[Rfam]
RNA sequence: CCCGACAAAGGCAAACUGGUCGUGAGGCCAGGACGCAAAGCCAAGGACCACUUUCAUGUGGUAGCCGGGCUGCCGAAG
Numbered sequence: 001c002c003c004g005a006c007a008a009a010g011g012c013a014a015a016c017u018g019g020u021c022g023u024g025a026g027g028c029c030a031g032g033a034c035g036c037a038a039a040g041c042c043a044a045g046g047a048c049c050a051c052u053u054u055c056a057u058g059u060g061g062u063a064g065c066c067g068g069g070c071u072g073c074c075g076a077a078g
Stems, first nucleotide, its partner, number of pairs: 001078001003075002011036002016031006034064001039071004045066002047062003

The record is a 78-nucleotide RNA sequence from Bremerella alba, which matches "c-di-GMP-I-GGC riboswitch aptamer" in Rfam. Lineage of the source: Bacteria > Pseudomonadati > Pirellulales > Pirellulaceae > Bremerella.